[Rfam]
RNA sequence: UUACGUUGGUGUAGAGUUUAAAGUUAACUUCUUUUAAGCUUAAACACUAAUAGUAAAAAUACUACAGAGCCCGCUUUUAUAGCGGGCUUUUUCGU
Numbered sequence: 001u002u003a004c005g006u007u008g009g010u011g012u013a014g015a016g017u018u019u020a021a022a023g024u025u026a027a028c029u030u031c032u033u034u035u036a037a038g039c040u041u042a043a044a045c046a047c048u049a050a051u052a053g054u055a056a057a058a059a060u061a062c063u064a065c066a067g068a069g070c071c072c073g074c075u076u077u078u079a080u081a082g083c084g085g086g087c088u089u090u091u092u093c094g095u
Stems, first nucleotide, its partner, number of pairs: 009047004014041005020035004068088007
The family of this 95-nucleotide RNA from Pseudoalteromonas translucida is "Tryptophan operon leader". The family's consensus secondary structure is taken from published work. Lineage of the source: Bacteria > Pseudomonadati > Pseudomonadota > Gammaproteobacteria > Pseudoalteromonas translucida. The family's RNA type in Rfam is cis-regulatory leader. A search with the family's covariance model found it, with a score of 41 bits. From the family's description: At least 6 amino acid operons are known to be regulated by attenuation. In each a leader sequence of 150-200 bp is found upstream of the first gene in the operon. This leader sequence can assume two different secondary structures known as the terminator and the anti-terminator structure. In each case the leader also codes for very short peptide sequence that is rich in the end product amino acid of the operon. The terminator structure is recognised as a termination signal for RNA polymerase and the operon is not transcribed. This structure forms when the cell has an excess of the regulatory amino acid and ribosome movement over the leader transcript is not impeded. When there is a deficiency of the charged tRNA of the regulatory amino acid the ribosome translating the leader peptide stalls and the antiterminator structure can form. This allows RNA polymerase to transcribe the operon. In the Rfam alignment the consensus structure is of the terminator structure.